Rfam assigns this 123-nucleotide RNA sequence from Allomesorhizobium alhagi to the family "Alphaproteobacterial ar14". Rfam describes the family as follows. Smr14C2 was renamed NfeR1 (Nodule Formation Efficiency RNA) highly expressed in salt stress and during the symbiotic interaction on legume roots.
RNA sequence: GAAUUUCGCCAGGGUCGACCUCCUCCCCGGCCCUGACGGAUACGGUCAGCUUUCACCUCCUCCCGAUCGCUGGCCGGCACAAAACGACACCCGCCGCACCUCCUCCCGCGGCGGGUGUUGUCU
Numbered sequence: 001g002a003a004u005u006u007c008g009c010c011a012g013g014g015u016c017g018a019c020c021u022c023c024u025c026c027c028c029g030g031c032c033c034u035g036a037c038g039g040a041u042a043c044g045g046u047c048a049g050c051u052u053u054c055a056c057c058u059c060c061u062c063c064c065g066a067u068c069g070c071u072g073g074c075c076g077g078c079a080c081a082a083a084a085c086g087a088c089a090c091c092c093g094c095c096g097c098a099c100c101u102c103c104u105c106c107c108g109c110g111g112c113g114g115g116u117g118u119u120g121u122c123u
Stems, first nucleotide, its partner, number of pairs: 006039003010035007044075007053066001087118011